[Rfam]
RNA sequence: GGAGGCGGCGACGCCCCCCCGACUUGAGACUGGCGAUAGCCGGUCUGUCGCCUCCGCGCCUCAUUCUCGAUGAUGCCACUUCCCGGGCGGGCCGAAAGGUCCGCCC
Numbered sequence: 001g002g003a004g005g006c007g008g009c010g011a012c013g014c015c016c017c018c019c020c021g022a023c024u025u026g027a028g029a030c031u032g033g034c035g036a037u038a039g040c041c042g043g044u045c046u047g048u049c050g051c052c053u054c055c056g057c058g059c060c061u062c063a064u065u066c067u068c069g070a071u072g073a074u075g076c077c078a079c080u081u082c083c084c085g086g087g088c089g090g091g092c093c094g095a096a097a098g099g100u101c102c103g104c105c106c
Stems, first nucleotide, its partner, number of pairs: 001055010012021002028045007085106009
Cauldobacter sRNA CC3552: a 106-nucleotide sequence from Brevundimonas sp. Leaf363. A reference for the family is Landt et al. (2008), "Small non-coding RNAs in Caulobacter crescentus", Mol Microbiol. It scores 104 bits against the family's covariance model.